[Rfam]
RNA sequence: GCUGGGAGCAGCCUCUUGUGAUGAGCCUUCUCUCUGAUGGCUGUGCUGGUGAUGAGCAGCAAACCAAAGCCUCUAAGAAGUUGGCUGAAGAGGCUGUUCCUCG
Numbered sequence: 001g002c003u004g005g006g007a008g009c010a011g012c013c014u015c016u017u018g019u020g021a022u023g024a025g026c027c028u029u030c031u032c033u034c035u036g037a038u039g040g041c042u043g044u045g046c047u048g049g050u051g052a053u054g055a056g057c058a059g060c061a062a063a064c065c066a067a068a069g070c071c072u073c074u075a076a077g078a079a080g081u082u083g084g085c086u087g088a089a090g091a092g093g094c095u096g097u098u099c100c101u102c103g
Base pairs, nucleotide, nucleotide: 007098008097009096010095011094012093013092014091015090016089017088
This 103-nucleotide sequence from Lepidothrix coronata belongs to the Rfam family "Small nucleolar RNA SNORD125". It is annotated as a C/D-box small nucleolar RNA. Gene Ontology terms of the family: nucleolus and RNA processing. The organism belongs to Lepidothrix, within Eukaryota.